[Rfam]
RNA sequence: UUCAAUUGAUCAAAGGCUAAGAGCGCCACAUCGUGUGCCAACACCUUUGUGACCACCGUCGUGUUGG
Numbered sequence: 001u002u003c004a005a006u007u008g009a010u011c012a013a014a015g016g017c018u019a020a021g022a023g024c025g026c027c028a029c030a031u032c033g034u035g036u037g038c039c040a041a042c043a044c045c046u047u048u049g050u051g052a053c054c055a056c057c058g059u060c061g062u063g064u065u066g067g
Stems, first nucleotide, its partner, number of pairs: 011049006025039001027037003053067003057063001
This 67-nucleotide RNA sequence from Psychrobacillus glaciei belongs to the Rfam family "Bacillaceae-1 RNA". It scores 54 bits against the family's covariance model. The family's consensus secondary structure is taken from published work. The family's RNA type in Rfam is small RNA. The organism belongs to Psychrobacillus, within Bacteria.